[Rfam]
RNA sequence: GGUCCAAUGCCACGUCGCUGGUAGCUACAAAUGAGCAUUGACCAGCGAUGCUAUGAUUGGACCAAAAACAAGAGUGAAUUUAAUUCGUUUCGCAUCCUGAUAGGAACCUGCGGGUCUCAUACCUUAUGAUCUGCGGAGCCGAUUUAUGCGAUUACAUUU
Numbered sequence: 001g002g003u004c005c006a007a008u009g010c011c012a013c014g015u016c017g018c019u020g021g022u023a024g025c026u027a028c029a030a031a032u033g034a035g036c037a038u039u040g041a042c043c044a045g046c047g048a049u050g051c052u053a054u055g056a057u058u059g060g061a062c063c064a065a066a067a068a069c070a071a072g073a074g075u076g077a078a079u080u081u082a083a084u085u086c087g088u089u090u091c092g093c094a095u096c097c098u099g100a101u102a103g104g105a106a107c108c109u110g111c112g113g114g115u116c117u118c119a120u121a122c123c124u125u126a127u128g129a130u131c132u133g134c135g136g137a138g139c140c141g142a143u144u145u146a147u148g149c150g151a152u153u154a155c156a157u158u159u
Base pairs, nucleotide, nucleotide: 002062003061004060005059006058007057008056009054013050014049015048016047017046018045020043021042022041024036025035026034090151091150092149093148094147103140104139108136109135110134112132113131114130115129116128